[Rfam]
RNA sequence: GGUUGCAAAUUUAAGGCCACAGCAGAAGUGCUCACAGUGCAGCCUGCCAGAUUCCAACGAAUCUGCAAAUUCUGCU
Numbered sequence: 001g002g003u004u005g006c007a008a009a010u011u012u013a014a015g016g017c018c019a020c021a022g023c024a025g026a027a028g029u030g031c032u033c034a035c036a037g038u039g040c041a042g043c044c045u046g047c048c049a050g051a052u053u054c055c056a057a058c059g060a061a062u063c064u065g066c067a068a069a070u071u072c073u074g075c076u
Stems, first nucleotide, its partner, number of pairs: 015044003021076007028040003048065007
A member of the RNA family "Mammalian CPEB3 ribozyme" from Alligator mississippiensis, 76 nucleotides long. It scores 51 bits against the family's covariance model. Pairs were carried over by alignment from the consensus structure, which is taken from published work.